[Rfam]
RNA: Eukaryotic large subunit ribosomal RNA, nucleotides 427 to 835
Organism: Phytophthora infestans
RNA sequence: CGAAUCGUUUCCAGUGUCUAUAAUCCGUGGUAUAUUUCAUUGGCGAGUGUGUGCGUGCGUGUGCUGUGGCAGCGGCUUUUUUGGCUGCGCUCGGCGUGUGUGCUGUGUGUGCUUGCUGGUGCCCUGUGCUGCGGUGGGACGUCAAGGUCAGUUCGUAUGCUGCGGGAAAUGGCCGCCGAGGAGGUAGGGCUUACGCUUGCGUUUGUCUGUUAUAUCUUGGUGGACGAGUAGUCGCGGUUGGGACUGAGGUGCCUACAACGUGUUUUUGAGUGGGCCUGUGUCUCUGUGUGCGCCGUGUGCGGAUAGCUUGCUAUGCGUGUGUGGUUGUGUGUGGAUUGAUGUGGGUUUUAACUUGUUGCCGUUCGGGACGUUGACGAAAUGGAGCGAUUUGACCCGUCUUGAAACACGG
Numbered sequence: 001c002g003a004a005u006c007g008u009u010u011c012c013a014g015u016g017u018c019u020a021u022a023a024u025c026c027g028u029g030g031u032a033u034a035u036u037u038c039a040u041u042g043g044c045g046a047g048u049g050u051g052u053g054c055g056u057g058c059g060u061g062u063g064c065u066g067u068g069g070c071a072g073c074g075g076c077u078u079u080u081u082u083g084g085c086u087g088c089g090c091u092c093g094g095c096g097u098g099u100g101u102g103c104u105g106u107g108u109g110u111g112c113u114u115g116c117u118g119g120u121g122c123c124c125u126g127u128g129c130u131g132c133g134g135u136g137g138g139a140c141g142u143c144a145a146g147g148u149c150a151g152u153u154c155g156u157a158u159g160c161u162g163c164g165g166g167a168a169a170u171g172g173c174c175g176c177c178g179a180g181g182a183g184g185u186a187g188g189g190c191u192u193a194c195g196c197u198u199g200c201g202u203u204u205g206u207c208u209g210u211u212a213u214a215u216c217u218u219g220g221u222g223g224a225c226g227a228g229u230a231g232u233c234g235c236g237g238u239u240g241g242g243a244c245u246g247a248g249g250u251g252c253c254u255a256c257a258a259c260g261u262g263u264u265u266u267u268g269a270g271u272g273g274g275c276c277u278g279u280g281u282c283u284c285u286g287u288g289u290g291c292g293c294c295g296u297g298u299g300c301g302g303a304u305a306g307c308u309u310g311c312u313a314u315g316c317g318u319g320u321g322u323g324g325u326u327g328u329g330u331g332u333g334g335a336u337u338g339a340u341g342u343g344g345g346u347u348u349u350a351a352c353u354u355g356u357u358g359c360c361g362u363u364c365g366g367g368a369c370g371u372u373g374a375c376g377a378a379a380u381g382g383a384g385c386g387a388u389u390u391g392a393c394c395c396g397u398c399u400u401g402a403a404a405c406a407c408g409g
Base pairs, nucleotide, nucleotide: 001391002390003389004388005387006386007385009384010383011382012381018228021227024224025223026222027221232374233373234372237369238368394409395408396407397406